Rfam assigns this 86-nucleotide RNA from Melopsittacus undulatus to the family "Small nucleolar RNA SNORD71". By type it is an H/ACA-box small nucleolar RNA. From the family's description: snoRNA HBII-239 belongs to the family of C/D snoRNAs.It is the human orthologue of the mouse MBII-239 described and is predicted to guide 2'O-ribose methylation of 5.8S rRNA on residue U14. The source organism's lineage runs through Eukaryota, Eumetazoa, Coelurosauria, Neoaves and Melopsittacus. The family has 18 seed sequences and 556 matches in Rfam 15.1. For this family Rfam cites "RNomics: an experimental approach that identifies 201 candidates for novel, small, non-messenger RNAs in mouse" (Huttenhofer et al., EMBO J, 2001). Pairs were carried over by alignment from the consensus structure, which was predicted with RNAalifold.
RNA sequence: GUGCUGUUGAAGGUUGAAACCUUUGAGUGAUCCAUCAGCAGACCAUGAUGUUGCCAUCCUGACACUCAUGCUGCUGACAAUGGAAU
Numbered sequence: 001g002u003g004c005u006g007u008u009g010a011a012g013g014u015u016g017a018a019a020c021c022u023u024u025g026a027g028u029g030a031u032c033c034a035u036c037a038g039c040a041g042a043c044c045a046u047g048a049u050g051u052u053g054c055c056a057u058c059c060u061g062a063c064a065c066u067c068a069u070g071c072u073g074c075u076g077a078c079a080a081u082g083g084a085a086u
Stems, first nucleotide, its partner, number of pairs: 002085001004083005009075001012033002015030001017028001035062004044053002